The family of this 159-nucleotide RNA from Candidatus Afipia apatlaquensis is "speF leader".
The match comes from Rfam's covariance-model search (66 bits).
For this family Rfam cites "A survey of sRNA families in alpha-proteobacteria" (del Val et al., RNA Biol, 2012).
Rfam describes the family as follows. This family is a putative regulatory RNA structure that is found upstream of the speF gene encoding ornithine decarboxylase in Agrobacterium tumefaciens and other alpha-proteobacteria.
By type it is a cis-regulatory leader.
Nucleotides: 159
Stems, first nucleotide, its partner, number of pairs: 001022001003020005037054003061139003106122001108120005
Number, partner (000 for none) and nucleotide at each position: 001022u002000a003020c004019c005018g006017g007016c008000a009000u010000u011000c012000c013000a014000c015000c016007g017006c018005c019004g020003g021000c022001g023000c024000g025000g026000g027000c028000u029000a030000c031000u032000g033000a034000a035000a036000a037054g038053g039052c040000u041000u042000g043000u044000c045000c046000u047000u048000c049000a050000u051000u052039g053038c054037c055000a056000g057000g058000u059000g060000u061139g062138c063137g064000g065000g066000c067000g068000g069000g070000a071000g072000c073000u074000u075000u076000c077000c078000c079000a080000a081000c082000c083000a084000a085000u086000c087000c088000a089000c090000g091000g092000c093000a094000g095000c096000a097000c098000a099000g100000u101000u102000u103000g104000g105000u106122c107000u108120g109119a110118g111117u112116u113000u114000u115000a116112g117111g118110c119109u120108c121000u122106g123000u124000c125000g126000c127000g128000c129000u130000u131000c132000c133000a134000u135000c136000u137063c138062g139061c140000g141000a142000c143000a144000a145000a146000g147000g148000c149000u150000u151000a152000u153000c154000g155000c156000u157000c158000a159000u